[Rfam]
RNA sequence: AUGAAGUACUGGGGGUGUCGGAAUAGGACUGAGAGGAUCUGUAGAUUCAACCCUUUGAACCUGAUGUGGGUAAACCCACCGUAGGGAAGUCUUUUUAAUGAUUU
Number, nucleotide and partner (000 for none) at each position: 001a000002u000003g000004a000005a000006g092007u000008a090009c089010u088011g054012g053013g052014g051015g000016u000017g029018u028019c027020g000021g000022a000023a000024u000025a000026g000027g019028a018029c017030u000031g000032a000033g000034a000035g000036g047037a046038u045039c044040u000041g000042u000043a000044g039045a038046u037047u036048c000049a000050a000051c014052c013053c012054u011055u000056u000057g000058a000059a000060c085061c084062u083063g082064a000065u000066g079067u078068g077069g076070g000071u000072a000073a000074a000075c000076c069077c068078a067079c066080c000081g000082u063083a062084g061085g060086g000087a000088a010089g009090u008091c000092u006093u000094u000095u000096u000097a000098a000099u000100g000101a000102u000103u000104u000